[Rfam]
RNA sequence: GCACCCGGGUAAGUCCUACACGGCAUGCUCCCUCGGAAUCCCCCAGGGCUUGACCGCAGCAAGGGUACUUGGUCGUAGCGGCGCGAUGUAGUAAGCUUACCCACCU
Numbered sequence: 001g002c003a004c005c006c007g008g009g010u011a012a013g014u015c016c017u018a019c020a021c022g023g024c025a026u027g028c029u030c031c032c033u034c035g036g037a038a039u040c041c042c043c044c045a046g047g048g049c050u051u052g053a054c055c056g057c058a059g060c061a062a063g064g065g066u067a068c069u070u071g072g073u074c075g076u077a078g079c080g081g082c083g084c085g086a087u088g089u090a091g092u093a094a095g096c097u098u099a100c101c102c103a104c105c106u
Base pairs, nucleotide, nucleotide: 007102008101009100010099011098012097013096014095016091017090018089019088020087021085022084023082024081
Dot-bracket structure: ......((((((((.(((((((((........................................................)).)).)))))...))))))))....